Shown here is a 132-nucleotide RNA from Phyllostomus discolor, a member of the family "Small nucleolar RNA SNORA42/SNORA80 family". It is annotated as an H/ACA-box small nucleolar RNA. The members of this family belong to the H/ACA class of snoRNAs that guide the sites of modification of uridines to pseudouridines. Human ACA42 (SNORA42) was cloned from HeLa cells by immunoprecipitation with anti-GAR1 antibody. The family's consensus secondary structure was predicted with RNAalifold. Gene Ontology terms of the family: RNA processing and nucleolus. The family has 21 seed sequences and 1,535 matches in Rfam 15.1. NCBI's taxonomy places the organism under Eukaryota, Metazoa, Mammalia, Chiroptera, Phyllostomus.
[Rfam]
RNA sequence: GCAUGGGCUUGGAUUUAUGGCAGGCCCAUCCCCCUGGGUCUCUCAUAGUGCCCCAUGCCAGAGCACUGUGACUCGGUACCAUUGCCUGGCCUCUGCUUGUGGGCUGCAGGCACUGAAGCAGGCUGAACAGUG
Numbered sequence: 001g002c003a004u005g006g007g008c009u010u011g012g013a014u015u016u017a018u019g020g021c022a023g024g025c026c027c028a029u030c031c032c033c034c035u036g037g038g039u040c041u042c043u044c045a046u047a048g049u050g051c052c053c054c055a056u057g058c059c060a061g062a063g064c065a066c067u068g069u070g071a072c073u074c075g076g077u078a079c080c081a082u083u084g085c086c087u088g089g090c091c092u093c094u095g096c097u098u099g100u101g102g103g104c105u106g107c108a109g110g111c112a113c114u115g116a117a118g119c120a121g122g123c124u125g126a127a128c129a130g131u132g
Base pairs, nucleotide, nucleotide: 001058002057003056004055005053006052007051008050015048016047017046018045019044020043022041023040024039025037026036069125070124072122073121080115081114085110086109087106088105089104090103091102092101